[Rfam]
RNA sequence: ACACAAGGAAGGAGGUGGUCCGCGAAAUUGUUAGCUUCAUGGACAUGUGAGGUGGCUACGCGCUAGCUGCACCGGCUCGGAAGAGCUAGCGAUUGUGCGCUGGCGAAUUCCCCGUAGCCACCCGGCCCCCGAGCUUCCGGUUUUGUCCGACCAGGAGCCACGCUCGGGGGCCGUUCCAU
Numbered sequence: 001a002c003a004c005a006a007g008g009a010a011g012g013a014g015g016u017g018g019u020c021c022g023c024g025a026a027a028u029u030g031u032u033a034g035c036u037u038c039a040u041g042g043a044c045a046u047g048u049g050a051g052g053u054g055g056c057u058a059c060g061c062g063c064u065a066g067c068u069g070c071a072c073c074g075g076c077u078c079g080g081a082a083g084a085g086c087u088a089g090c091g092a093u094u095g096u097g098c099g100c101u102g103g104c105g106a107a108u109u110c111c112c113c114g115u116a117g118c119c120a121c122c123c124g125g126c127c128c129c130c131g132a133g134c135u136u137c138c139g140g141u142u143u144u145g146u147c148c149g150a151c152c153a154g155g156a157g158c159c160a161c162g163c164u165c166g167g168g169g170g171c172c173g174u175u176c177c178a179u
Base pairs, nucleotide, nucleotide: 015059016058017057018056019055061105062104063103064102065101066100067099069098070097071096072095074093076091123173124172125171126170127169128168129167130166131165132164133163134162137155138154140152142150
A member of the RNA family "Actinobacteria sRNA Ms_IGR-5" from Mycobacterium conspicuum, 179 nucleotides long. The match comes from Rfam's covariance-model search (170 bits). The base pairs follow the family's consensus structure. By type it is a small RNA.